RNA sequence: AUUUGACCAACUUCUGUUGGUGAGAAAGACAGACUUGUUUCUUGCACCAACAGAAGUUGGUACAAU
Numbered sequence: 001a002u003u004u005g006a007c008c009a010a011c012u013u014c015u016g017u018u019g020g021u022g023a024g025a026a027a028g029a030c031a032g033a034c035u036u037g038u039u040u041c042u043u044g045c046a047c048c049a050a051c052a053g054a055a056g057u058u059g060g061u062a063c064a065a066u
Stems, first nucleotide, its partner, number of pairs: 001066003005061001007060009017050006026043004
The family of this 66-nucleotide RNA from Chelonia mydas is "mir-29 microRNA precursor family".
The literature on the family includes a 2001 paper in Cell by Ambros, "microRNAs: tiny regulators with great potential".
The family has 168 seed sequences and 3,328 matches in Rfam 15.1.
Taxonomically the source falls in Chelonia (Eukaryota, Craniata, Dipnotetrapodomorpha, Chelonioidea).
Rfam links the family to the GO terms RISC complex and gene silencing by miRNA.
A search with the family's covariance model found it, with a score of 48 bits.